[Rfam]
Nematode sRNA ceN72-3_ceN74-2: a 153-nucleotide RNA sequence from Caenorhabditis brenneri. The family's RNA type in Rfam is small RNA. The literature on the family includes a 2015 paper in J Cell Sci by Kowalski et al., "Non-coding stem-bulge RNAs are required for cell proliferation and embryonic development in C. elegans".
RNA sequence: AUCGACGGUCCGGCGUUGAUGGGUUAUCAAUAAUCGCCCCCUGUUCGCAGGGUGGAAAUUUGACUUCCUAGUGAGGUCGCUCUGGAUAGAGGACCCUUGUGGACUGGGUUAAAGUUCACAACCCCCUCCCAUCAACACCAACUUGACCGUUGU
Dot-bracket structure: ..((.(((((.((.(((((((((.............(.(((((....))))).)....((((........................))))........((((((.........))))))........))))))))).)).....))))).)).